[Rfam]
RNA sequence: GUCGGCUAUGGUGACAUGGCGCCCAAGACCUACAUUGGCAUGUUUGUCGGCGCCCUAUGCGCCCUUGCCGGUGUGCUAACCAUUGCACUGCCAGUGCCCGUCAUAGUCAGCAAC
Numbered sequence: 001g002u003c004g005g006c007u008a009u010g011g012u013g014a015c016a017u018g019g020c021g022c023c024c025a026a027g028a029c030c031u032a033c034a035u036u037g038g039c040a041u042g043u044u045u046g047u048c049g050g051c052g053c054c055c056u057a058u059g060c061g062c063c064c065u066u067g068c069c070g071g072u073g074u075g076c077u078a079a080c081c082a083u084u085g086c087a088c089u090g091c092c093a094g095u096g097c098c099c100g101u102c103a104u105a106g107u108c109a110g111c112a113a114c
Base pairs, nucleotide, nucleotide: 001114002113004111008107009106011104013102014101015100018097021095022094037077038076039075040074049063050062051061

The record is a 114-nucleotide RNA from Drosophila virilis, which matches "Potassium channel RNA editing signal" in Rfam. On this family, see Bhalla et al., Nat Struct Mol Biol 2004: "Control of human potassium channel inactivation by editing of a small mRNA hairpin". The organism belongs to Drosophila, within Eukaryota. By type it is a cis-regulatory element. Rfam's curators write: This family represents a group of sequences related to the human potassium channel Kv1.1 hairpin element which directs the efficient modification of an adenosine to inosine by an adenosine deaminase acting on RNA (ADAR). The ADAR modification causes an isoleucine/valine recoding event which lies in the ion-conducting pore of the potassium channel. It is thought that this editing event targets the process of fast inactivation and allows a more rapid recovery from inactivation at negative potentials. Pairs were carried over by alignment from the consensus structure, which is taken from published work. Rfam 15.1 lists 14,095 matches to the family in 1,000 species.